[Rfam]
RNA: c-di-GMP-I riboswitch aptamer
RNA sequence: AUUUGUAAAAGGCAAACCUAUUAAAAGAUGGGGACGCAAAGACACAGAUCUAAGGCAUUUUUGUUAUGAUGGCUGGUCUACCGAA
Numbered sequence: 001a002u003u004u005g006u007a008a009a010a011g012g013c014a015a016a017c018c019u020a021u022u023a024a025a026a027g028a029u030g031g032g033g034a035c036g037c038a039a040a041g042a043c044a045c046a047g048a049u050c051u052a053a054g055g056c057a058u059u060u061u062u063g064u065u066a067u068g069a070u071g072g073c074u075g076g077u078c079u080a081c082c083g084a085a
Base pairs, nucleotide, nucleotide: 012037013036017032018031019030020029021028022027040079041078042077043076045075046074047073048070049069050068055064056063057062